[Rfam]
RNA sequence: AACUUUUACGAGGUAUCAGCACUUUUCUUUCGCUGGUGGGGAAGGAAGGAUGAAAAAUACAAAGCAGGAGUAGACUUUUAAAGUUUAAAUAGACAGGUCCGAGCGCCUGAGCGUGCUCUUCCGUUUUCCCUUAACCCUCCAGAGAAGUACCCCGAGCCACUCGCACUGCUCAUCAGCAGCGGUAAGUUGGAAGU
Numbered sequence: 001a002a003c004u005u006u007u008a009c010g011a012g013g014u015a016u017c018a019g020c021a022c023u024u025u026u027c028u029u030u031c032g033c034u035g036g037u038g039g040g041g042a043a044g045g046a047a048g049g050a051u052g053a054a055a056a057a058u059a060c061a062a063a064g065c066a067g068g069a070g071u072a073g074a075c076u077u078u079u080a081a082a083g084u085u086u087a088a089a090u091a092g093a094c095a096g097g098u099c100c101g102a103g104c105g106c107c108u109g110a111g112c113g114u115g116c117u118c119u120u121c122c123g124u125u126u127u128c129c130c131u132u133a134a135c136c137c138u139c140c141a142g143a144g145a146a147g148u149a150c151c152c153c154g155a156g157c158c159a160c161u162c163g164c165a166c167u168g169c170u171c172a173u174c175a176g177c178a179g180c181g182g183u184a185a186g187u188u189g190g191a192a193g194u
Stems, first nucleotide, its partner, number of pairs: 003019002007015003029146003033142004038137003041132002044129001049125004056120002073099005101116001103114003156188001158186001161182003166176003
Dot-bracket structure: ..((..(((...)))..)).........(((.((((.(((((.(....((((...((...............(((((.................))))).(.(((......))).)..)).))))...).))..))).)))).))).........(.(..(((..(((.....)))...)))...).)......